[Rfam]
RNA sequence: GGGUCUAGGGUUAUCCCCUAGAGGUUGUUUUGAUGGUCGGGCCGCCAUCU
Numbered sequence: 001g002g003g004u005c006u007a008g009g010g011u012u013a014u015c016c017c018c019u020a021g022a023g024g025u026u027g028u029u030u031u032g033a034u035g036g037u038c039g040g041g042c043c044g045c046c047a048u049c050u
Stems, first nucleotide, its partner, number of pairs: 005021006032049006